[Rfam]
RNA: tRNA
RNA sequence: GGGGCUGUAGCUCAGUUGGUUAGAGCUGGGAACUCAUAAUUCCUAGGUCGCGGGUUCAAGUCCUGCCAGCCCUA
Numbered sequence: 001g002g003g004g005c006u007g008u009a010g011c012u013c014a015g016u017u018g019g020u021u022a023g024a025g026c027u028g029g030g031a032a033c034u035c036a037u038a039a040u041u042c043c044u045a046g047g048u049c050g051c052g053g054g055u056u057c058a059a060g061u062c063c064u065g066c067c068a069g070c071c072c073u074a
Base pairs, nucleotide, nucleotide: 001073002072003071004070005069006068007067010026011025012024013023028044029043030042031041032040050066051065052064053063054062